Shown here is a 203-nucleotide RNA from Myotis myotis, a member of the family "Small nucleolar RNA SNORA74".
The family's consensus secondary structure was predicted with PFOLD.
Gene Ontology terms of the family: RNA processing and nucleolus.

RNA sequence: UCCAGCAGUGGUCAGCUCUCCAGACAGAAUCAUGCCUGUGAGGGUGUUACACUGCUGGGAGAGGAAUGCCCUGUCUUCUUCCUCCAGUUGCUCCCUUCACUGCUCUGGCGAUGUGUGGCACUGGUGCAGGGCAGUACUGUGCUUCCUUGAGAGUGAGCUAAGCAGCACUUUGGCUGCUUAGUUGUAGUGUGGGAGCAGACACA
Numbered sequence: 001u002c003c004a005g006c007a008g009u010g011g012u013c014a015g016c017u018c019u020c021c022a023g024a025c026a027g028a029a030u031c032a033u034g035c036c037u038g039u040g041a042g043g044g045u046g047u048u049a050c051a052c053u054g055c056u057g058g059g060a061g062a063g064g065a066a067u068g069c070c071c072u073g074u075c076u077u078c079u080u081c082c083u084c085c086a087g088u089u090g091c092u093c094c095c096u097u098c099a100c101u102g103c104u105c106u107g108g109c110g111a112u113g114u115g116u117g118g119c120a121c122u123g124g125u126g127c128a129g130g131g132c133a134g135u136a137c138u139g140u141g142c143u144u145c146c147u148u149g150a151g152a153g154u155g156a157g158c159u160a161a162g163c164a165g166c167a168c169u170u171u172g173g174c175u176g177c178u179u180a181g182u183u184g185u186a187g188u189g190u191g192g193g194a195g196c197a198g199a200c201a202c203a
Stems, first nucleotide, its partner, number of pairs: 001059009011050002015045006021038003025034001068137001071134006082126001084124003087119005094113001096111001098110001100108002140197007156183002159180007
The match comes from Rfam's covariance-model search (117 bits). About the family: U19 belongs to the H/ACA class of snoRNAs. snoRNAs bind a number of proteins (including dyskerin, Gar1p and Nop10p in the case of the H/ACA class) to form snoRNP complexes.